Nucleotides: 109
Base pairs, nucleotide, nucleotide: 014054015053016052017051018050043068044067045066046065047064075095076094077093078092079091080090081089
Number, partner (000 for none) and nucleotide at each position: 001000u002000a003000a004000c005000u006000u007000u008000u009000g010000u011000g012000a013000c014054u015053u016052g017051c018050u019000g020000a021000a022000a023000a024000g025000g026000g027000a028000c029000u030000a031000a032000a033000a034000c035000u036000c037000c038000u039000c040000a041000c042000c043068g044067a045066g046065g047064c048000u049000a050018a051017g052016c053015a054014a055000g056000u057000a058000a059000a060000a061000u062000a063000c064047g065046c066045c067044u068043c069000u070000c071000a072000u073000a074000u075095c076094u077093c078092a079091g080090u081089c082000u083000g084000a085000g086000g087000g088000u089081g090080a091079c092078u093077g094076a095075g096000a097000a098000a099000u100000a101000a102000g103000u104000a105000c106000c107000u108000c109000c
PhotoRC-II RNA: a 109-nucleotide RNA sequence. The sequence is in the family's curated seed alignment. Rfam classes the family as a cis-regulatory element.